[Rfam]
RNA sequence: GUCGGCGUCUAUACGGUGACGCCGCAGGCGCUGCCCGUCGUGACGGAGCUGCCGGGCCGUACGUCUGCUUACCAGGUGGCCGAGGUGCGUCCGCAAGUGGGCGGCAUCGUGCAGAAACGCCUGUUCACGGAAGGCGCCGACGUCAAGGCCGGCACGCCGCUGUACCAGAUCGA
Numbered sequence: 001g002u003c004g005g006c007g008u009c010u011a012u013a014c015g016g017u018g019a020c021g022c023c024g025c026a027g028g029c030g031c032u033g034c035c036c037g038u039c040g041u042g043a044c045g046g047a048g049c050u051g052c053c054g055g056g057c058c059g060u061a062c063g064u065c066u067g068c069u070u071a072c073c074a075g076g077u078g079g080c081c082g083a084g085g086u087g088c089g090u091c092c093g094c095a096a097g098u099g100g101g102c103g104g105c106a107u108c109g110u111g112c113a114g115a116a117a118c119g120c121c122u123g124u125u126c127a128c129g130g131a132a133g134g135c136g137c138c139g140a141c142g143u144c145a146a147g148g149c150c151g152g153c154a155c156g157c158c159g160c161u162g163u164a165c166c167a168g169a170u171c172g173a
Stems, first nucleotide, its partner, number of pairs: 003054005008047003012042005021034002055150004061143003065139001067137002070134001072133001079094002082091001097120001099118001102114001104112003157172001160168002
The family of this 173-nucleotide RNA from Pseudoduganella armeniaca is "Burkholderia RNA 14".
About the family: Co-purified with Hfq, expression confirmed by Northern blot.
Its family is annotated with protein binding in the Gene Ontology.
A reference for the family is Ramos et al. (2013), "Experimental identification of small non-coding regulatory RNAs in the opportunistic human pathogen Burkholderia cenocepacia J2315", Genomics.
Taxonomically the source falls in Pseudoduganella (Bacteria, Betaproteobacteria, Burkholderiales, Oxalobacteraceae).
Rfam classes the family as a small RNA.